[Rfam]
RNA: small nucleolar RNA snoR114
Organism: Hibiscus trionum
RNA sequence: GAGCAGUGAGGAUAGUUGUGUUAUUGAGAUGAUAGGGUCAUCCCACUUUUCCGACCAAUUGAUGAGAGUAACUGCACACUUGAGCUC
Numbered sequence: 001g002a003g004c005a006g007u008g009a010g011g012a013u014a015g016u017u018g019u020g021u022u023a024u025u026g027a028g029a030u031g032a033u034a035g036g037g038u039c040a041u042c043c044c045a046c047u048u049u050u051c052c053g054a055c056c057a058a059u060u061g062a063u064g065a066g067a068g069u070a071a072c073u074g075c076a077c078a079c080u081u082g083a084g085c086u087c
Stems, first nucleotide, its partner, number of pairs: 001087004